Shown here is a 76-nucleotide RNA sequence from Methylopila turkensis, a member of the family "Makes More Granules Regulator RNA (mmgR)". NCBI's taxonomy places the organism under Bacteria, Pseudomonadota, Hyphomicrobiales, Methylopilaceae, Methylopila. The family's RNA type in Rfam is small RNA. A reference for the family is Corbino et al. (2005), "Evidence for a second class of S-adenosylmethionine riboswitches and other regulatory RNA motifs in alpha-proteobacteria", Genome Biol. It scores 75 bits against the family's covariance model.
RNA sequence: UGCCGCUGCCCUCCUUGGGCGUUUCCUCCCUAGACUUGGGCCGCUUGCUUGCAGGCGGCCCUUUUUUCUUAUUGGC
Numbered sequence: 001u002g003c004c005g006c007u008g009c010c011c012u013c014c015u016u017g018g019g020c021g022u023u024u025c026c027u028c029c030c031u032a033g034a035c036u037u038g039g040g041c042c043g044c045u046u047g048c049u050u051g052c053a054g055g056c057g058g059c060c061c062u063u064u065u066u067u068c069u070u071a072u073u074g075g076c
Stems, first nucleotide, its partner, number of pairs: 008020004038061009